Shown here is a 132-nucleotide sequence from Lipotes vexillifer, a member of the family "Small nucleolar RNA SNORA70". By type it is an H/ACA-box small nucleolar RNA. From the family's description: snoRNA U70 seems to be exclusive to mammals and is a member of the H/ACA class of snoRNA which contain H (ANANNA) and ACA box motifs. H/ACA box snoRNAs are involved in the conversion of uridines to pseudouridines (5-ribosyluracil) a constituent of structural RNAs (transfer, ribosomal, small nuclear, and small nucleolar). Rfam 15.1 lists 5,173 matches to the family in 383 species.
[Rfam]
RNA sequence: AACCCAGUUAAGCCGACUGUGCUCUUUUCCCCACGGGGGCCCGAUGUCCCGUAGCUGCAAACAGCAGCCUCCUCGGUAGUAUAUGCAGCCUGUUGCCUGUAUGGGUUGCCCUAAGGGACCUUGGAUUCAGCU
Numbered sequence: 001a002a003c004c005c006a007g008u009u010a011a012g013c014c015g016a017c018u019g020u021g022c023u024c025u026u027u028u029c030c031c032c033a034c035g036g037g038g039g040c041c042c043g044a045u046g047u048c049c050c051g052u053a054g055c056u057g058c059a060a061a062c063a064g065c066a067g068c069c070u071c072c073u074c075g076g077u078a079g080u081a082u083a084u085g086c087a088g089c090c091u092g093u094u095g096c097c098u099g100u101a102u103g104g105g106u107u108g109c110c111c112u113a114a115g116g117g118a119c120c121u122u123g124g125a126u127u128c129a130g131c132u
Stems, first nucleotide, its partner, number of pairs: 002047001016045001018043002022039004075120003086108006